[Rfam]
RNA: mir-15 microRNA precursor family
RNA sequence: ACUUAUUACGCUCUAGCAGCACGUAAAUAUUGGUGUAGUGAAGUCUUAAACCCCAAUAUUAUUGUGCUGCUUUAGCGUGAUAGGG
Number, nucleotide and partner (000 for none) at each position: 001a000002c084003u083004u082005a081006u080007u000008a000009c000010g000011c000012u000013c000014u000015a071016g070017c069018a068019g067020c066021a065022c064023g063024u000025a000026a060027a059028u058029a057030u056031u055032g054033g053034u000035g051036u050037a000038g000039u000040g000041a000042a000043g000044u000045c000046u000047u000048a000049a000050a036051c035052c000053c033054c032055a031056a030057u029058a028059u027060u026061a000062u000063u023064g022065u021066g020067c019068u018069g017070c016071u015072u000073u000074a000075g000076c000077g000078u000079g000080a006081u005082a004083g003084g002085g000